Rfam assigns this 44-nucleotide sequence from Saccharothrix sp. ST-888 to the family "L31-Actinobacteria ribosomal protein leader". The organism belongs to Saccharothrix, within Bacteria. It is annotated as a cis-regulatory leader.
RNA sequence: UCGGUCCCGGUUCACGAGCAGCGCCCUGCUGCCGACCCGGUGCC
Numbered sequence: 001u002c003g004g005u006c007c008c009g010g011u012u013c014a015c016g017a018g019c020a021g022c023g024c025c026c027u028g029c030u031g032c033c034g035a036c037c038c039g040g041u042g043c044c
Stems, first nucleotide, its partner, number of pairs: 003044003007040004015034002019031004